[Rfam]
About this RNA: Shown here is a 98-nucleotide RNA sequence from Mycobacterium adipatum, a member of the family "Mycobacterium sRNA Ms_AS-1". On this family, see Li et al., RNA 2013: "Identification of small RNAs in Mycobacterium smegmatis using heterologous Hfq".
RNA sequence: GACGGGUUCGGGAUGAAGUGGUUGACCACGCCCCCGAACACCGCGUAGAUCCGUUUACCGUCGUUGAGCAUCUGCACGCCGCGGCUGCGGAACUCCUU
Numbered sequence: 001g002a003c004g005g006g007u008u009c010g011g012g013a014u015g016a017a018g019u020g021g022u023u024g025a026c027c028a029c030g031c032c033c034c035c036g037a038a039c040a041c042c043g044c045g046u047a048g049a050u051c052c053g054u055u056u057a058c059c060g061u062c063g064u065u066g067a068g069c070a071u072c073u074g075c076a077c078g079c080c081g082c083g084g085c086u087g088c089g090g091a092a093c094u095c096c097u098u
Stems, first nucleotide, its partner, number of pairs: 006039006015032001018029004043054003079090004
The family's RNA type in Rfam is small RNA. The base pairs follow the family's consensus structure.